Overview: Shown here is a 134-nucleotide RNA sequence from Streptococcus salivarius, a member of the family "Streptococcus sRNA SpR19". It is one of the family's seed sequences. By type it is a small RNA. The literature on the family includes a 2012 paper in PLoS Pathog by Mann et al., "Control of virulence by small RNAs in Streptococcus pneumoniae".

RNA sequence: GCGUUUUUCUAGCGAGCUUGGGAUAGUGAAAGCCAAGUAGAGCAAAGUAAGCAAGUGGCGCUUUCUCUCAGCAAAGAGCUGAGUACAACAGAUAAAAUGAAGUAAUAAAUUAGGGUGGAACCGCGUUUCUGACG
Numbered sequence: 001g002c003g004u005u006u007u008u009c010u011a012g013c014g015a016g017c018u019u020g021g022g023a024u025a026g027u028g029a030a031a032g033c034c035a036a037g038u039a040g041a042g043c044a045a046a047g048u049a050a051g052c053a054a055g056u057g058g059c060g061c062u063u064u065c066u067c068u069c070a071g072c073a074a075a076g077a078g079c080u081g082a083g084u085a086c087a088a089c090a091g092a093u094a095a096a097a098u099g100a101a102g103u104a105a106u107a108a109a110u111u112a113g114g115g116u117g118g119a120a121c122c123g124c125g126u127u128u129c130u131g132a133c134g
Base pairs, nucleotide, nucleotide: 001124002123003121004120005119006118007117008115009114016072017071018070021066022065023064025062026061027060028059031056038049039048086102089099090098